[Rfam]
Nucleotides: 116
Base pairs, nucleotide, nucleotide: 006085007084008083009082010081015035017034018033019032020031036063037062038061041059042058043057045054046053051108087098088097089096
Number, partner (000 for none) and nucleotide at each position: 001000a002000u003000u004000c005000a006085a007084c008083a009082u010081c011000a012000g013000g014000a015035g016000c017034g018033g019032u020031u021000u022000c023000a024000a025000a026000a027000c028000u029000g030000u031020a032019a033018c034017c035015c036063g037062c038061c039000a040000a041059c042058c043057g044000a045054c046053c047000c048000a049000a050000a051108u052000g053046g054045g055000c056000a057043c058042g059041g060000u061038g062037g063036u064000u065000a066000g067000a068000u069000c070000c071000u072000u073000a074000a075000g076000c077000g078000g079000u080000a081010g082009a083008u084007g085006u086000g087098c088097c089096u090000u091000u092000g093000a094000u095000u096089a097088g098087g099000a100000a101000a102000u103000c104000u105000u106000a107000a108051a109000a110000g111000c112000u113000g114000c115000c116000u
The record is a 116-nucleotide RNA, which matches "SAM-I/IV (S-adenosyl methionine) riboswitch aptamer" in Rfam.
For this family Rfam cites "The aptamer core of SAM-IV riboswitches mimics the ligand-binding site of SAM-I riboswitches" (Weinberg et al., RNA, 2008).